[Rfam]
RNA: Small nucleolar RNA SNORA3/SNORA45 family
Organism: Pan troglodytes
RNA sequence: GCUGACACUAGAGUAACAUCCUGACACAGCUCUUGUCCUGGUGUGCUAGAGUUCUCGAUGAAUCUACUGGUCUUGAUUCACUGGCAGGAGCAAACAGUGACUGUGUUAGUAUGCGUAUCUAAAACAUGG
Numbered sequence: 001g002c003u004g005a006c007a008c009u010a011g012a013g014u015a016a017c018a019u020c021c022u023g024a025c026a027c028a029g030c031u032c033u034u035g036u037c038c039u040g041g042u043g044u045g046c047u048a049g050a051g052u053u054c055u056c057g058a059u060g061a062a063u064c065u066a067c068u069g070g071u072c073u074u075g076a077u078u079c080a081c082u083g084g085c086a087g088g089a090g091c092a093a094a095c096a097g098u099g100a101c102u103g104u105g106u107u108a109g110u111a112u113g114c115g116u117a118u119c120u121a122a123a124a125c126a127u128g129g
Base pairs, nucleotide, nucleotide: 003057004056005055007052008051009050012047013046016044017043018042019041020040023037024036025035026034069119070118071117073115080110081109082108083107084106086104088102091099